This 97-nucleotide RNA sequence from Elizabethkingia argenteiflava belongs to the Rfam family "TPP riboswitch aptamer (THI element)". It scores 67 bits against the family's covariance model. Lineage of the source: Bacteria > Pseudomonadati > Flavobacteriia > Weeksellaceae > Elizabethkingia.
[Rfam]
RNA sequence: AGCUAACUUUAGGGGUGUCCGCUGUGUGCGGGCUGAGACUUUACCCUCAAUACCUGAUCCAGGUUAUACUGGCGUAGGGAAAAGAUAGCUUUCAUCU
Numbered sequence: 001a002g003c004u005a006a007c008u009u010u011a012g013g014g015g016u017g018u019c020c021g022c023u024g025u026g027u028g029c030g031g032g033c034u035g036a037g038a039c040u041u042u043a044c045c046c047u048c049a050a051u052a053c054c055u056g057a058u059c060c061a062g063g064u065u066a067u068a069c070u071g072g073c074g075u076a077g078g079g080a081a082a083a084g085a086u087a088g089c090u091u092u093c094a095u096c097u
Base pairs, nucleotide, nucleotide: 007084008083009082010081011047012046013045014044017033018032019031020030021029053078054077055076056075059072060071061070062069